[Rfam]
RNA sequence: CUACACUAGGUGGGGAGUUAGCGGUGCCCUGUACUUGCAAUCCGCUGCAGCAAGACUGAAUUCCCACUUUGAGGCUGGUAAAAUUAAGGUUUGCACCCAUACUUGGAUGUUGAGAGUUGGGCUUCGUGCAAUCAUACCUUACAAACUCCACCAGGUGCGAGAGCAAGCAGUGGUAAGUAAGUGCUAUGAUGUGCCCCGAAACUACCUGGCUUGAGUUCACUUAUGGGAAAGCAUUUGAUUUUAUCAUGUCGAUGGUGGGUGUGUAG
Numbered sequence: 001c002u003a004c005a006c007u008a009g010g011u012g013g014g015g016a017g018u019u020a021g022c023g024g025u026g027c028c029c030u031g032u033a034c035u036u037g038c039a040a041u042c043c044g045c046u047g048c049a050g051c052a053a054g055a056c057u058g059a060a061u062u063c064c065c066a067c068u069u070u071g072a073g074g075c076u077g078g079u080a081a082a083a084u085u086a087a088g089g090u091u092u093g094c095a096c097c098c099a100u101a102c103u104u105g106g107a108u109g110u111u112g113a114g115a116g117u118u119g120g121g122c123u124u125c126g127u128g129c130a131a132u133c134a135u136a137c138c139u140u141a142c143a144a145a146c147u148c149c150a151c152c153a154g155g156u157g158c159g160a161g162a163g164c165a166a167g168c169a170g171u172g173g174u175a176a177g178u179a180a181g182u183g184c185u186a187u188g189a190u191g192u193g194c195c196c197c198g199a200a201a202c203u204a205c206c207u208g209g210c211u212u213g214a215g216u217u218c219a220c221u222u223a224u225g226g227g228a229a230a231g232c233a234u235u236u237g238a239u240u241u242u243a244u245c246a247u248g249u250c251g252a253u254g255g256u257g258g259g260u261g262u263g264u265a266g
Base pairs, nucleotide, nucleotide: 001266002265003264004263005262006261009057010056011055012030013029014028015027017025018024019023034054035053036052037051038050063259064258065257066256067255068254073250074249075248079243080242081241082240083239084238085237086236087235088234092233093232096227097226098225099224100223101222105220106217107216108215114212115211116210117209118208119207120206121205123200124199125198126197128195129191130190132189133188134187135186136185138181139180140179141178142177148173149172150171151170156165157164158163
Bacterial large signal recognition particle RNA: a 266-nucleotide RNA sequence from Anaerofustis stercorihominis. Rfam classes the family as a non-coding RNA gene. The organism belongs to Anaerofustis stercorihominis, within Bacteria. It scores 170 bits against the family's covariance model.